[Rfam]
Alphaproteobacteria transfer-messenger RNA: a 362-nucleotide sequence from Phenylobacterium deserti. Gene Ontology term of the family: RNA catabolic process. From the family's description: Bacterial tmRNA, also known as 10Sa RNA or SsrA, is named for its dual tRNA and mRNA-like properties. Its role is to liberate the mRNA from a stalled ribosome. To accomplish this part of the tmRNA is used as a reading frame that ends in a translation stop signal. The broken mRNA is replaced in the ribosome by the tmRNA and translation of the tmRNA leads to addition of a proteolysis tag to the incomplete protein enabling recognition by a protease. Recently a number of permuted tmRNA genes have been found encoded in two parts. tmRNAs have been identified in eubacteria and some chloroplasts but are absent from archaeal and eukaryote nuclear genomes. Taxonomically the source falls in Phenylobacterium (Bacteria, Pseudomonadati, Caulobacterales, Caulobacteraceae). The family's RNA type in Rfam is non-coding RNA gene.
RNA sequence: CCCCUUCAAAUCCCUGAGCGGCGGGCCUAUAUGGAAAGCGUCGGGUUUCGGCCCGACUAUGGGGAUAAACGCGCGCAUAAUAAGCGGACUGGACCCGGGUGCGAUUCCCGGCGGCUCCACCAAAUCUUCCUCCCGGUUAUCGCGGGGCAAGCAUGGGGCCGAUCAGCAUCGACAGACGUCUAAAGGCGUUGCUUUCUCUCGGCCUGACCCACCGUUCCGGGUCUUUAACUAAAUGCGAACGAUAACUUCGCUGAGGAAGUCCGCCUGGCCGCGUAAGCGGUCCGGUGAACAUCCGACCUAAGUCCUAGGGGUUCAGAUCCUUAGGCGGGGCCCGGGGGAGCCUGCCAACAGAAUCCCCCACC
Numbered sequence: 001c002c003c004c005u006u007c008a009a010a011u012c013c014c015u016g017a018g019c020g021g022c023g024g025g026c027c028u029a030u031a032u033g034g035a036a037a038g039c040g041u042c043g044g045g046u047u048u049c050g051g052c053c054c055g056a057c058u059a060u061g062g063g064g065a066u067a068a069a070c071g072c073g074c075g076c077a078u079a080a081u082a083a084g085c086g087g088a089c090u091g092g093a094c095c096c097g098g099g100u101g102c103g104a105u106u107c108c109c110g111g112c113g114g115c116u117c118c119a120c121c122a123a124a125u126c127u128u129c130c131u132c133c134c135g136g137u138u139a140u141c142g143c144g145g146g147g148c149a150a151g152c153a154u155g156g157g158g159c160c161g162a163u164c165a166g167c168a169u170c171g172a173c174a175g176a177c178g179u180c181u182a183a184a185g186g187c188g189u190u191g192c193u194u195u196c197u198c199u200c201g202g203c204c205u206g207a208c209c210c211a212c213c214g215u216u217c218c219g220g221g222u223c224u225u226u227a228a229c230u231a232a233a234u235g236c237g238a239a240c241g242a243u244a245a246c247u248u249c250g251c252u253g254a255g256g257a258a259g260u261c262c263g264c265c266u267g268g269c270c271g272c273g274u275a276a277g278c279g280g281u282c283c284g285g286u287g288a289a290c291a292u293c294c295g296a297c298c299u300a301a302g303u304c305c306u307a308g309g310g311g312u313u314c315a316g317a318u319c320c321u322u323a324g325g326c327g328g329g330g331c332c333c334g335g336g337g338g339a340g341c342c343u344g345c346c347a348a349c350a351g352a353a354u355c356c357c358c359c360a361c362c
Stems, first nucleotide, its partner, number of pairs: 040057007061199005071192002073189004085178002089175003095111005112161007200214003206223005328343004334359006
Dot-bracket structure: .......................................(((((((....)))))))...(((((.....((((((........((..(((...(((((.......)))))(((((((....................................)))))))...........))).)).......)))).))..)))))[[[...(((((.]]]....)))))........................................................................................................[[[[..((((((]]]]..........))))))...